[Rfam]
RNA sequence: GGGAUGUGAUGAGUGGUUCAGUACUCGCAUUAAAACAUGCGAGAUUUGGGUGUUCCGCCCCAAGCCUGGUUACGACAAAUUGGGCACUCACAUCUUAUCCAAUCUGAUCCC
Numbered sequence: 001g002g003g004a005u006g007u008g009a010u011g012a013g014u015g016g017u018u019c020a021g022u023a024c025u026c027g028c029a030u031u032a033a034a035a036c037a038u039g040c041g042a043g044a045u046u047u048g049g050g051u052g053u054u055c056c057g058c059c060c061c062a063a064g065c066c067u068g069g070u071u072a073c074g075a076c077a078a079a080u081u082g083g084g085c086a087c088u089c090a091c092a093u094c095u096u097a098u099c100c101a102a103u104c105u106g107a108u109c110c111c
Stems, first nucleotide, its partner, number of pairs: 001111004014102001016100001024043005047090006054084002067082004